[Rfam]
RNA sequence: AUGCACGAUGCAGACCGGGCUUAUCUGAAAUCCAAUGUAGAAGAAAGCCCCAAUGCUCAGUCACCCUUCAGUGUUACAGUUUAGCUUCGAUGCUAUUUUUGUGUCAAAGCAAUGGCUAUAUAU
Numbered sequence: 001a002u003g004c005a006c007g008a009u010g011c012a013g014a015c016c017g018g019g020c021u022u023a024u025c026u027g028a029a030a031u032c033c034a035a036u037g038u039a040g041a042a043g044a045a046a047g048c049c050c051c052a053a054u055g056c057u058c059a060g061u062c063a064c065c066c067u068u069c070a071g072u073g074u075u076a077c078a079g080u081u082u083a084g085c086u087u088c089g090a091u092g093c094u095a096u097u098u099u100u101g102u103g104u105c106a107a108a109g110c111a112a113u114g115g116c117u118a119u120a121u122a123u
Stems, first nucleotide, its partner, number of pairs: 003062001007058002010056002017050005022044001024041003064115002067112002072106002075103005083094003

Shown here is a 123-nucleotide RNA sequence from Kingdonia uniflora, a member of the family "small nucleolar RNA snoR134".
Rfam classes the family as an H/ACA-box small nucleolar RNA.
The literature on the family includes a 2009 paper in Nucleic Acids Res by Chen and Wu, "Mining small RNA sequencing data: a new approach to identify small nucleolar RNAs in Arabidopsis".
Rfam links the family to the GO terms nucleolus and RNA processing.
NCBI's taxonomy places the organism under Eukaryota, Spermatophyta, Mesangiospermae, Circaeasteraceae, Kingdonia.
A search with the family's covariance model found it, with a score of 61 bits.
Rfam 15.1 lists 792 matches to the family in 228 species.